Record summary:
This 102-nucleotide RNA from Shouchella lonarensis belongs to the Rfam family "Purine riboswitch aptamer". It scores 81 bits against the family's covariance model. Pairs were carried over by alignment from the consensus structure, which is taken from published work. Its family is annotated with purine nucleobase biosynthetic process in the Gene Ontology.
RNA sequence: AAGAAAAUUGUGUUUCAUGGUCGUAUAAUCGCAGGGAUAAGGCCUGCAAGUUUCUACCGAGCUACCGUAAAUGGCUUGACUACGACAUGAUGAUGGUUCGUC
Numbered sequence: 001a002a003g004a005a006a007a008u009u010g011u012g013u014u015u016c017a018u019g020g021u022c023g024u025a026u027a028a029u030c031g032c033a034g035g036g037a038u039a040a041g042g043c044c045u046g047c048a049a050g051u052u053u054c055u056a057c058c059g060a061g062c063u064a065c066c067g068u069a070a071a072u073g074g075c076u077u078g079a080c081u082a083c084g085a086c087a088u089g090a091u092g093a094u095g096g097u098u099c100g101u102c
Base pairs, nucleotide, nucleotide: 020086021085022084023083024082025081029049031047032046033045034044035043058078059077060076061075062074063073064072